RNA sequence: GCGCGUGUAGCUCAGUUGGAUAGAGCGUCGGCCUCCGGAGCCGAAGGUCAUAGGUUCGAAUCCUAUCACGCGCG
Numbered sequence: 001g002c003g004c005g006u007g008u009a010g011c012u013c014a015g016u017u018g019g020a021u022a023g024a025g026c027g028u029c030g031g032c033c034u035c036c037g038g039a040g041c042c043g044a045a046g047g048u049c050a051u052a053g054g055u056u057c058g059a060a061u062c063c064u065a066u067c068a069c070g071c072g073c074g
Base pairs, nucleotide, nucleotide: 001073002072003071004070005069006068007067010026011025012024013023028044029043030042031041032040050066051065052064053063054062
RNA: tRNA
Organism: Gemmatirosa kalamazoonensis